Rfam assigns this 64-nucleotide sequence from Caballeronia glathei to the family "Burkholderia sRNA Bp1_Cand684_SIPHT". Rfam 15.1 lists 176 matches to the family in 44 species. The family's consensus secondary structure was predicted with RNAalifold. Rfam classes the family as a small RNA. A reference for the family is Khoo et al. (2012), "Computational discovery and RT-PCR validation of novel Burkholderia conserved and Burkholderia pseudomallei unique sRNAs", BMC Genomics.
RNA sequence: CUGCCGCCCCGCACAGGGGCGAAGCUAAUAGACCGAUAACAAAGCAACUUUCACGGGAGCGCAG
Numbered sequence: 001c002u003g004c005c006g007c008c009c010c011g012c013a014c015a016g017g018g019g020c021g022a023a024g025c026u027a028a029u030a031g032a033c034c035g036a037u038a039a040c041a042a043a044g045c046a047a048c049u050u051u052c053a054c055g056g057g058a059g060c061g062c063a064g
Stems, first nucleotide, its partner, number of pairs: 001064004005021006048057003